Rfam assigns this 96-nucleotide RNA sequence from Senna tora to the family "Small nucleolar RNA snoR8a". The literature on the family includes a 2001 paper in RNA by Brown et al., "Multiple snoRNA gene clusters from Arabidopsis". Taxonomically the source falls in Senna (Eukaryota, Streptophyta, Spermatophyta, fabids).

[Rfam]
RNA sequence: UGGGUUGCCACCAUGAUUAUACAAUAAUUCGUCGUUGUGAGUGCUGGCAUUAUAACAAACAGACUCGUUGGUUCACAGCCAUAGAAUAUGAGCACC
Numbered sequence: 001u002g003g004g005u006u007g008c009c010a011c012c013a014u015g016a017u018u019a020u021a022c023a024a025u026a027a028u029u030c031g032u033c034g035u036u037g038u039g040a041g042u043g044c045u046g047g048c049a050u051u052a053u054a055a056c057a058a059a060c061a062g063a064c065u066c067g068u069u070g071g072u073u074c075a076c077a078g079c080c081a082u083a084g085a086a087u088a089u090g091a092g093c094a095c096c
Stems, first nucleotide, its partner, number of pairs: 003096002006094002